[Rfam]
RNA sequence: GACAGGAAGAUGAAGUAACAAGAGCCUAAGAGCAGUGUGCAUGGGAACAUGAUGGAAGGCUAAAGCUCUCAUUCCUCAUCUAACACUAGAGGAUGCUUUGGUCUGAGUUUUCCUGAUGCCUCCCAUGCCUAUUGUUCUUUGGUGCUCCUUCCUCUUCCUUUUGGAU
Number, nucleotide and partner (000 for none) at each position: 001g000002a000003c000004a000005g000006g000007a000008a000009g157010a156011u000012g154013a153014a000015g151016u000017a149018a000019c000020a000021a146022g145023a000024g000025c142026c141027u000028a139029a138030g137031a136032g135033c134034a133035g000036u131037g130038u000039g128040c127041a126042u125043g124044g123045g122046a121047a000048c118049a117050u116051g000052a114053u000054g113055g112056a111057a110058g109059g108060c107061u000062a000063a000064a000065g000066c000067u000068c000069u000070c000071a000072u000073u000074c000075c000076u000077c000078a000079u000080c000081u000082a000083a000084c000085a000086c000087u000088a000089g000090a000091g000092g000093a000094u000095g000096c000097u000098u000099u000100g000101g000102u000103c000104u000105g000106a000107g060108u059109u058110u057111u056112c055113c054114u052115g000116a050117u049118g048119c000120c000121u046122c045123c044124c043125a042126u041127g040128c039129c000130u037131a036132u000133u034134g033135u032136u031137c030138u029139u028140u000141g026142g025143u000144g000145c022146u021147c000148c000149u017150u000151c015152c000153u013154c012155u000156u010157c009158c000159u000160u000161u000162u000163g000164g000165a000166u000
RNA: MIR2118 microRNA precursor family
Organism: Triticum urartu